The record is a 155-nucleotide sequence from marine actinobacterium PHSC20C1, which matches "FMN riboswitch aptamer (RFN element)" in Rfam. A reference for the family is Serganov et al. (2009), "Coenzyme recognition and gene regulation by a flavin mononucleotide riboswitch", Nature. The match comes from Rfam's covariance-model search (86 bits). NCBI's taxonomy places the organism under Bacteria, Bacillati, Actinomycetota, Actinomycetes. The family's consensus secondary structure is taken from published work.
RNA sequence: AACGUGCUCCGGGGCUCGGUGAGAUUCCGAACCGGCGGUUAUAGUCCGCGACCCGCAACGAAGUGAAAACUUUGGAACGGUUGACCUGGUGAAACUCCGGGACCGACGGUAAUGAGAUCGCAAGAUUUCUCAGUCCGGAUAAGAGGAAGCACGAG
Numbered sequence: 001a002a003c004g005u006g007c008u009c010c011g012g013g014g015c016u017c018g019g020u021g022a023g024a025u026u027c028c029g030a031a032c033c034g035g036c037g038g039u040u041a042u043a044g045u046c047c048g049c050g051a052c053c054c055g056c057a058a059c060g061a062a063g064u065g066a067a068a069a070c071u072u073u074g075g076a077a078c079g080g081u082u083g084a085c086c087u088g089g090u091g092a093a094a095c096u097c098c099g100g101g102a103c104c105g106a107c108g109g110u111a112a113u114g115a116g117a118u119c120g121c122a123a124g125a126u127u128u129c130u131c132a133g134u135c136c137g138g139a140u141a142a143g144a145g146g147a148a149g150c151a152c153g154a155g
Stems, first nucleotide, its partner, number of pairs: 003153006009146002017029003033105002035049004044103002053080002085101005107137003